This 90-nucleotide RNA sequence from Rothia kristinae belongs to the Rfam family "Actino-pnp RNA".
NCBI's taxonomy places the organism under Bacteria, Actinomycetes, Micrococcales, Micrococcaceae, Rothia.
It scores 53 bits against the family's covariance model.
The base pairs follow the family's consensus structure, which is taken from published work.
RNA sequence: GCAAGUCCUCGGUAGUGGCCUCCGGACACCCGCCCCUCAUCCACGCGGAUGAGGCGGCGCACCGUCCGUGGGCCUCGAUCGAAGGCUUGG
Numbered sequence: 001g002c003a004a005g006u007c008c009u010c011g012g013u014a015g016u017g018g019c020c021u022c023c024g025g026a027c028a029c030c031c032g033c034c035c036c037u038c039a040u041c042c043a044c045g046c047g048g049a050u051g052a053g054g055c056g057g058c059g060c061a062c063c064g065u066c067c068g069u070g071g072g073c074c075u076c077g078a079u080c081g082a083a084g085g086c087u088u089g090g
Base pairs, nucleotide, nucleotide: 002089003088004087005086006085007084009082010081011080012079013078017074018073019072020071021070023068024067025066026065027064